Small Cajal body specific RNA 6: a 263-nucleotide RNA from Mionectes macconnelli. U88 is small Cajal body specific RNA (scaRNA). scaRNAs are a novel class of small nuclear RNAs which localise to the Cajal bodies. U88 is found associated with both fibrillarin and Gar1p and co-localises with coilin in Cajal bodies. Taxonomically the source falls in Mionectes (Eukaryota, Archosauria, Coelurosauria, Tyrannidae). Its family is annotated with RNA processing and nucleolus in the Gene Ontology. The literature on the family includes a 2002 paper in EMBO J by Darzacq et al., "Cajal body-specific small nuclear RNAs: a novel class of 2'-O-methylation and pseudouridylation guide RNAs". It is annotated as a small Cajal body RNA. The family has 17 seed sequences and 1,309 matches in Rfam 15.1.
[Rfam]
RNA sequence: GGUCUGUGAUGAAUAGUAAAAGGUCUGAUUAUCCCAAGACUUGCACUUCCACAACCCUUUCUCCCAGCAGUUUCUCACCAGUCAUGGCACAGUCAUGUUGUGGCUGGCAGAGUGUUUGCUGACAGCUUGAGAUGCACUCAGUUCAUGUUAACCUGGAGUGUCGGAGACAUGACUGGGAUCAGCAUCCUACAGUCCUGCUUCAAGGAGUUUGGGGUCUUGGAUUGUUCUACCCGGACAUGUGAUCUGACUUUUGUGCUGAGACC
Numbered sequence: 001g002g003u004c005u006g007u008g009a010u011g012a013a014u015a016g017u018a019a020a021a022g023g024u025c026u027g028a029u030u031a032u033c034c035c036a037a038g039a040c041u042u043g044c045a046c047u048u049c050c051a052c053a054a055c056c057c058u059u060u061c062u063c064c065c066a067g068c069a070g071u072u073u074c075u076c077a078c079c080a081g082u083c084a085u086g087g088c089a090c091a092g093u094c095a096u097g098u099u100g101u102g103g104c105u106g107g108c109a110g111a112g113u114g115u116u117u118g119c120u121g122a123c124a125g126c127u128u129g130a131g132a133u134g135c136a137c138u139c140a141g142u143u144c145a146u147g148u149u150a151a152c153c154u155g156g157a158g159u160g161u162c163g164g165a166g167a168c169a170u171g172a173c174u175g176g177g178a179u180c181a182g183c184a185u186c187c188u189a190c191a192g193u194c195c196u197g198c199u200u201c202a203a204g205g206a207g208u209u210u211g212g213g214g215u216c217u218u219g220g221a222u223u224g225u226u227c228u229a230c231c232c233g234g235a236c237a238u239g240u241g242a243u244c245u246g247a248c249u250u251u252u253g254u255g256c257u258g259a260g261a262c263c
Stems, first nucleotide, its partner, number of pairs: 001263004037245003041241001047221003051217001053215001061207004065121006078107009129187001131186005144171006152164002